[Rfam]
RNA sequence: UUGAAGAAUUUAAAGACUUCAACUUACAGAUUUAAAGAAAUUAAAGACUUCAACUAGCAAACAUGAAGAUUUUGAAGACUUCAUCU
Numbered sequence: 001u002u003g004a005a006g007a008a009u010u011u012a013a014a015g016a017c018u019u020c021a022a023c024u025u026a027c028a029g030a031u032u033u034a035a036a037g038a039a040a041u042u043a044a045a046g047a048c049u050u051c052a053a054c055u056a057g058c059a060a061a062c063a064u065g066a067a068g069a070u071u072u073u074g075a076a077g078a079c080u081u082c083a084u085c086u
Base pairs, nucleotide, nucleotide: 002083003082004081005080006079009076010075011074012073013072014071017068018067019066020065021064025059027057032053033052035050036049037048
Dot-bracket structure: .(((((..((((((..(((((...(.(....((.(((..........))).))...).)....)))))..))))))..)))))...
Rfam assigns this 86-nucleotide sequence from Solanum lycopersicum to the family "MIR8024 microRNA precursor family". The match comes from Rfam's covariance-model search (66 bits). Taxonomically the source falls in Solanum subgen. Lycopersicon (Eukaryota, Viridiplantae, Streptophytina, Gunneridae).